[Rfam]
RNA sequence: GUGCGGCCUCCGCCGAAUUCGGUGCGCCCUCGCGGCAGCCGGAACCGGGGACCCACCGACCUUGGGGUGAAUCGGUCCAACUGCCCUGCCGGGCAAGGACCGUAGGGCAAUCCUUCCGGAGCCACCCGCCCGAACCCGACAGCUAACUCGGUAGGCGGACGACGGAAGGAGAU
Number, nucleotide and partner (000 for none) at each position: 001g000002u000003g000004c000005g000006g000007c000008c000009u000010c000011c157012g156013c155014c154015g000016a000017a000018u043019u042020c041021g040022g039023u038024g000025c000026g000027c000028c000029c000030u000031c000032g000033c000034g000035g000036c000037a000038g023039c022040c021041g020042g019043a018044a152045c151046c150047g149048g148049g147050g000051a000052c000053c000054c064055a063056c000057c000058g000059a000060c000061c000062u000063u055064g054065g137066g136067g135068u000069g000070a000071a000072u000073c102074g101075g100076u099077c098078c097079a000080a000081c000082u000083g000084c000085c000086c000087u000088g000089c000090c000091g000092g000093g000094c000095a000096a000097g078098g077099a076100c075101c074102g073103u000104a000105g131106g130107g129108c128109a000110a000111u000112c000113c000114u000115u000116c000117c000118g000119g000120a000121g000122c000123c000124a000125c000126c000127c000128g108129c107130c106131c105132g000133a000134a000135c067136c066137c065138g000139a000140c000141a000142g000143c000144u000145a000146a000147c049148u048149c047150g046151g045152u044153a000154g014155g013156c012157g011158g000159a000160c000161g000162a000163c000164g000165g000166a000167a000168g000169g000170a000171g000172a000173u000
RNA: c-di-AMP riboswitch aptamer (ydaO/yuaA leader)
Organism: Streptomyces sp. HG99